[Rfam]
The record is a 96-nucleotide sequence from Poecilia formosa, which matches "Z30 small nucleolar RNA" in Rfam. Pairs were carried over by alignment from the consensus structure, which was predicted with PFOLD. A reference for the family is Galardi et al. (2002), "Purified box C/D snoRNPs are able to reproduce site-specific 2'-O-methylation of target RNA in vitro", Mol Cell Biol. The source organism's lineage runs through Eukaryota, Chordata, Teleostei, Poeciliidae and Poecilia. The family's RNA type in Rfam is C/D-box small nucleolar RNA.
RNA sequence: CUGCAGUGAUGAUUUCUAGUGACUGACCUGGAAUUGCUGGUCUCUGGGUCGGCUCUGUUCAGGAAAUGACUUGGGGUUAAUCUUCUCUCUGAGUGG
Number, nucleotide and partner (000 for none) at each position: 001c095002u000003g094004c093005a000006g000007u000008g000009a000010u000011g000012a000013u000014u000015u000016c000017u000018a000019g000020u000021g000022a000023c000024u000025g000026a000027c000028c000029u000030g000031g000032a000033a000034u000035u000036g053037c052038u051039g050040g000041u000042c000043u000044c000045u000046g000047g000048g000049u000050c039051g038052g037053c036054u000055c000056u000057g000058u000059u000060c000061a000062g000063g000064a000065a000066a000067u000068g000069a000070c000071u000072u000073g000074g000075g000076g000077u000078u000079a000080a000081u000082c000083u000084u000085c000086u000087c000088u000089c000090u000091g000092a000093g004094u003095g001096g000